[Rfam]
A member of the RNA family "STAXI RNA" from Sclerurus mexicanus, 150 nucleotides long. NCBI's taxonomy places the organism under Eukaryota, Bilateria, Teleostomi, Sauropsida, Sclerurus. Pairs were carried over by alignment from the consensus structure, which is taken from published work. The family's RNA type in Rfam is small RNA.
RNA sequence: AGGCUUUUCUGGAGCUCACUAAUGCACCUGUGAGCUGUGAAAGGCUUUUCUGGAGCUCACUAAUGCACCUGUGAGCUGUGAAAGGCUUUCCUGGAGCUCACUAAUGCACCUGUGAGCUGUGAAAGGCACCAAGCACCAGGUGGUUUCUUU
Numbered sequence: 001a002g003g004c005u006u007u008u009c010u011g012g013a014g015c016u017c018a019c020u021a022a023u024g025c026a027c028c029u030g031u032g033a034g035c036u037g038u039g040a041a042a043g044g045c046u047u048u049u050c051u052g053g054a055g056c057u058c059a060c061u062a063a064u065g066c067a068c069c070u071g072u073g074a075g076c077u078g079u080g081a082a083a084g085g086c087u088u089u090c091c092u093g094g095a096g097c098u099c100a101c102u103a104a105u106g107c108a109c110c111u112g113u114g115a116g117c118u119g120u121g122a123a124a125g126g127c128a129c130c131a132a133g134c135a136c137c138a139g140g141u142g143g144u145u146u147c148u149u150u
Stems, first nucleotide, its partner, number of pairs: 002016005024045002030060006046054003065087001068084001071101006089095002106127002112147001114145002117142001128141003